The family of this 84-nucleotide RNA from Phoenix dactylifera is "small nucleolar RNA snoR114". A search with the family's covariance model found it, with a score of 58 bits. Rfam links the family to the GO terms nucleolus and RNA processing.

[Rfam]
RNA sequence: GAGCGAUGAGGACAACCGCGCUCGAGUGAUGCUGGGCGCAUCACAACCGUCUGAUCAUCGGACGAUGACAGCGCUCCUGGGCUC
Numbered sequence: 001g002a003g004c005g006a007u008g009a010g011g012a013c014a015a016c017c018g019c020g021c022u023c024g025a026g027u028g029a030u031g032c033u034g035g036g037c038g039c040a041u042c043a044c045a046a047c048c049g050u051c052u053g054a055u056c057a058u059c060g061g062a063c064g065a066u067g068a069c070a071g072c073g074c075u076c077c078u079g080g081g082c083u084c
Stems, first nucleotide, its partner, number of pairs: 001084004